[Rfam]
RNA sequence: GUAUGGCAGGAGUGAUGCAUCAAUUAGAUGUGUGAAGUGUACUAAUGGACUCAAGUUUGAGGCUCGUCGAUAUUCUGACCUGUCAAUU
Number, nucleotide and partner (000 for none) at each position: 001g088002u000003a000004u085005g084006g083007c082008a081009g080010g079011a000012g000013u000014g000015a000016u000017g000018c000019a000020u000021c000022a000023a000024u000025u000026a000027g000028a000029u000030g000031u000032g000033u000034g000035a000036a000037g000038u000039g000040u000041a000042c000043u000044a000045a000046u000047g000048g000049a000050c000051u000052c000053a000054a000055g000056u000057u000058u000059g000060a000061g000062g000063c000064u000065c000066g000067u000068c000069g000070a000071u000072a000073u000074u000075c000076u000077g000078a000079c010080c009081u008082g007083u006084c005085a004086a000087u000088u001
Rfam assigns this 88-nucleotide RNA from Cocos nucifera to the family "Small nucleolar RNA Z266". A search with the family's covariance model found it, with a score of 61 bits.